[Rfam]
RNA sequence: GGAGUCGGACAGGCUGUCGCCGCGGACCGCAAGGCCCGGGGAGGAAAGUCCGGGCUCCGCAGGGCAGGACGCUGGAUAACGUCCAGCGGAAGCGAUUCCGGGAAAGUGCCACAGAAAACAAACCGCCCGCCGCAAGGCGGGUAAGGGUGAAACGGUGGGGUAAAAGCCCACCAGCGGUCGCGGUGACGCGGCCGGCUAGGCAAACCCCGUCCGGAGCAAGGCCAAAUAGGGAGGCGCAUACGGUCGGCCCGGCCGUUGCCUCCGGGUAGGCUGCUUGAGGCCUGGAGCAAUCCAGGCCCUAGAGGAAUGACGGCUGCCCCGCAAGGGGAACAGAACCCGGCUUAUCGUCCGACUCCAUGC
Numbered sequence: 001g002g003a004g005u006c007g008g009a010c011a012g013g014c015u016g017u018c019g020c021c022g023c024g025g026a027c028c029g030c031a032a033g034g035c036c037c038g039g040g041g042a043g044g045a046a047a048g049u050c051c052g053g054g055c056u057c058c059g060c061a062g063g064g065c066a067g068g069a070c071g072c073u074g075g076a077u078a079a080c081g082u083c084c085a086g087c088g089g090a091a092g093c094g095a096u097u098c099c100g101g102g103a104a105a106g107u108g109c110c111a112c113a114g115a116a117a118a119c120a121a122a123c124c125g126c127c128c129g130c131c132g133c134a135a136g137g138c139g140g141g142u143a144a145g146g147g148u149g150a151a152a153c154g155g156u157g158g159g160g161u162a163a164a165a166g167c168c169c170a171c172c173a174g175c176g177g178u179c180g181c182g183g184u185g186a187c188g189c190g191g192c193c194g195g196c197u198a199g200g201c202a203a204a205c206c207c208c209g210u211c212c213g214g215a216g217c218a219a220g221g222c223c224a225a226a227u228a229g230g231g232a233g234g235c236g237c238a239u240a241c242g243g244u245c246g247g248c249c250c251g252g253c254c255g256u257u258g259c260c261u262c263c264g265g266g267u268a269g270g271c272u273g274c275u276u277g278a279g280g281c282c283u284g285g286a287g288c289a290a291u292c293c294a295g296g297c298c299c300u301a302g303a304g305g306a307a308u309g310a311c312g313g314c315u316g317c318c319c320c321g322c323a324a325g326g327g328g329a330a331c332a333g334a335a336c337c338c339g340g341c342u343u344a345u346c347g348u349c350c351g352a353c354u355c356c357a358u359g360c
Stems, first nucleotide, its partner, number of pairs: 001356010011345001012315007020041002023038003027034002046343003050340005055216004062250004067212005072086005087100005101207002106205002108201003123146002125142007154172006174196001175194008220272004230263006241255005279298008
The family of this 360-nucleotide RNA sequence from Desulfocurvibacter africanus is "Bacterial RNase P class A". A search with the family's covariance model found it, with a score of 320 bits. Ribonuclease P (RNase P) is a ubiquitous endoribonuclease, found in archaea, bacteria and eukarya as well as chloroplasts and mitochondria. Its best characterised activity is the generation of mature 5'-ends of tRNAs by cleaving the 5'-leader elements of precursor-tRNAs. Pairs were carried over by alignment from the consensus structure, which is taken from published work.